The family of this 146-nucleotide RNA sequence from Hordeum vulgare is "small nucleolar RNA snoR137".
It scores 52 bits against the family's covariance model.
RNA sequence: GUUGCUUCACAACUGGAAGGAUUCCCUGUUGAUAAUAGUUUGGUCAUCCUGUAGAGGGAAGCAUAGAUGAACGGAGACAUCGGCCAGUAUUAAACAACACGACGCUCUAUCAAACUGCGUCCUAUUACCUGUCUUCUGGCACAUCU
Numbered sequence: 001g002u003u004g005c006u007u008c009a010c011a012a013c014u015g016g017a018a019g020g021a022u023u024c025c026c027u028g029u030u031g032a033u034a035a036u037a038g039u040u041u042g043g044u045c046a047u048c049c050u051g052u053a054g055a056g057g058g059a060a061g062c063a064u065a066g067a068u069g070a071a072c073g074g075a076g077a078c079a080u081c082g083g084c085c086a087g088u089a090u091u092a093a094a095c096a097a098c099a100c101g102a103c104g105c106u107c108u109a110u111c112a113a114a115c116u117g118c119g120u121c122c123u124a125u126u127a128c129c130u131g132u133c134u135u136c137u138g139g140c141a142c143a144u145c146u
Base pairs, nucleotide, nucleotide: 003063004062005061006060007059008058016049018047024043025042083140084139085138086137087136089134096126097125101121102120103119104118